[Rfam]
RNA sequence: GCCCACUUGGCGCAAUGGUUAGCGCACCUGACUUCUAUUGUUGGAAGAUCCAAUCAGGAGGCUGCAAGUUCGAAUCUUGCAGUGGGUG
Numbered sequence: 001g002c003c004c005a006c007u008u009g010g011c012g013c014a015a016u017g018g019u020u021a022g023c024g025c026a027c028c029u030g031a032c033u034u035c036u037a038u039u040g041u042u043g044g045a046a047g048a049u050c051c052a053a054u055c056a057g058g059a060g061g062c063u064g065c066a067a068g069u070u071c072g073a074a075u076c077u078u079g080c081a082g083u084g085g086g087u088g
Base pairs, nucleotide, nucleotide: 001087002086003085004084005083006082007081010025011024012023013022027058028057029056030055031054064080065079066078067077068076
RNA: tRNA